[Rfam]
c-di-AMP riboswitch aptamer (ydaO/yuaA leader): a 145-nucleotide RNA from Paenibacillus wynnii. The match comes from Rfam's covariance-model search (69 bits).
RNA sequence: CAUCAGUACGUGCCGAGUUUCCUUAAUAAAACAAGGAAAACGGGGGAACCACUUUGGGUGAAUUGACCUCCUAUUCUAAGAGGGGUCAUAGGGGACCUUCAACCGAACCCUUAAGCUAACCUCGUAGGCAUUUGGAAGGGGUUUA
Numbered sequence: 001c002a003u004c005a006g007u008a009c010g011u012g013c014c015g016a017g018u019u020u021c022c023u024u025a026a027u028a029a030a031a032c033a034a035g036g037a038a039a040a041c042g043g044g045g046g047a048a049c050c051a052c053u054u055u056g057g058g059u060g061a062a063u064u065g066a067c068c069u070c071c072u073a074u075u076c077u078a079a080g081a082g083g084g085g086u087c088a089u090a091g092g093g094g095a096c097c098u099u100c101a102a103c104c105g106a107a108c109c110c111u112u113a114a115g116c117u118a119a120c121c122u123c124g125u126a127g128g129c130a131u132u133u134g135g136a137a138g139g140g141g142u143u144u145a
Stems, first nucleotide, its partner, number of pairs: 011130004018039007040125006056110003064088007091104002